[Rfam]
RNA: mir-16 microRNA precursor family
Organism: Homo sapiens
Nucleotides: 105
Stems, first nucleotide, its partner, number of pairs: 012092003016088003021085001022082008031072001033071008
Number, partner (000 for none) and nucleotide at each position: 001000c002000u003000g004000a005000c006000a007000u008000a009000c010000u011000u012092g013091u014090u015000c016088c017087a018086c019000u020000c021085u022082a023081g024080c025079a026078g027077c028076a029075c030000g031072u032000a033071a034070a035069u036068a037067u038066u039065g040064g041000c042000g043000u044000a045000g046000u047000g048000a049000a050000a051000u052000a053000u054000a055000u056000a057000u058000u059000a060000a061000a062000c063000a064040c065039c066038a067037a068036u069035a070034u071033u072031a073000c074000u075029g076028u077027g078026c079025u080024g081023c082022u083000u084000u085021a086018g087017u088016g089000u090014g091013a092012c093000a094000g095000g096000g097000a098000u099000a100000c101000a102000g103000c104000a105000a